[Rfam]
RNA sequence: AGAAGUAGUAUCCCGCAGCGUAUCCGACACGGGCUUUGCUGCGGAUAAUUCUUUUAUGAAACCUAGGAGUGAAUAAUGGCCCGUAUUGCAGGCAUUAACAUUCCUGAU
Numbered sequence: 001a002g003a004a005g006u007a008g009u010a011u012c013c014c015g016c017a018g019c020g021u022a023u024c025c026g027a028c029a030c031g032g033g034c035u036u037u038g039c040u041g042c043g044g045a046u047a048a049u050u051c052u053u054u055u056a057u058g059a060a061a062c063c064u065a066g067g068a069g070u071g072a073a074u075a076a077u078g079g080c081c082c083g084u085a086u087u088g089c090a091g092g093c094a095u096u097a098a099c100a101u102u103c104c105u106g107a108u
Stems, first nucleotide, its partner, number of pairs: 004052002007049001009047005024092002030083004039106001

The record is a 108-nucleotide RNA sequence from Vibrio vulnificus, which matches "Alpha operon ribosome binding site" in Rfam. The family's RNA type in Rfam is cis-regulatory element. Gene Ontology term of the family: ribosome binding. For this family Rfam cites "Translational repression of the Escherichia coli alpha operon mRNA: importance of an mRNA conformational switch and a ternary entrapment complex" (Schlax et al., J Biol Chem, 2001). Rfam's curators write: The bacterial alpha operon ribosome binding site is surrounded by this complex pseudoknotted structure. Translation of the mRNA produces 4 ribosomal protein products, one of which (S4) acts as a translational repressor by binding to the nested pseudoknot region. The mechanism of repression is thought to involve a conformational switch in the pseudoknot region and ribosome entrapment.